Annotation:
This 103-nucleotide RNA sequence from Sodalis ligni belongs to the Rfam family "Gammaprotebacteria rimP leader". The match comes from Rfam's covariance-model search (89 bits).
[Rfam]
RNA sequence: AAGCCGCUUGCGGCUUACAGGGUCCCAGUCGCAAAAAGCCCCGAAUUUUCGGGGUUUUUUGUUAUUAAAUGCUAGAACUACUGGGCUUUUUAGCCCUUUUUUU
Numbered sequence: 001a002a003g004c005c006g007c008u009u010g011c012g013g014c015u016u017a018c019a020g021g022g023u024c025c026c027a028g029u030c031g032c033a034a035a036a037a038g039c040c041c042c043g044a045a046u047u048u049u050c051g052g053g054g055u056u057u058u059u060u061g062u063u064a065u066u067a068a069a070u071g072c073u074a075g076a077a078c079u080a081c082u083g084g085g086c087u088u089u090u091u092a093g094c095c096c097u098u099u100u101u102u103u
Stems, first nucleotide, its partner, number of pairs: 035058009083096004
Source information: NCBI's taxonomy places the organism under Bacteria, Gammaproteobacteria, Enterobacterales, Bruguierivoracaceae, Sodalis. On this family, see Naville and Gautheret, Genome Biol 2010: "Premature terminator analysis sheds light on a hidden world of bacterial transcriptional attenuation".